[Rfam]
RNA sequence: AACAUUACCCUAACACAGGCACAGACUUGAAUUUGAAAGCAGUAAGUGCUAUUUGUUGGGUAGUGUGC
Dot-bracket structure: ...(((((((..(((.((((((..(((.............)))..))))).).))).)))))))....
Numbered sequence: 001a002a003c004a005u006u007a008c009c010c011u012a013a014c015a016c017a018g019g020c021a022c023a024g025a026c027u028u029g030a031a032u033u034u035g036a037a038a039g040c041a042g043u044a045a046g047u048g049c050u051a052u053u054u055g056u057u058g059g060g061u062a063g064u065g066u067g068c
Stems, first nucleotide, its partner, number of pairs: 004064007013056003017052001018050005025043003

Notes: This 68-nucleotide RNA sequence from Lates calcarifer belongs to the Rfam family "miR-430 microRNA precursor family". The match comes from Rfam's covariance-model search (58 bits). A reference for the family is Giraldez et al. (2005), "MicroRNAs regulate brain morphogenesis in zebrafish", Science. The family has 32 seed sequences and 24,817 matches in Rfam 15.1. Lineage of the source: Eukaryota > Craniata > Actinopterygii > Euteleosteomorpha > Lates.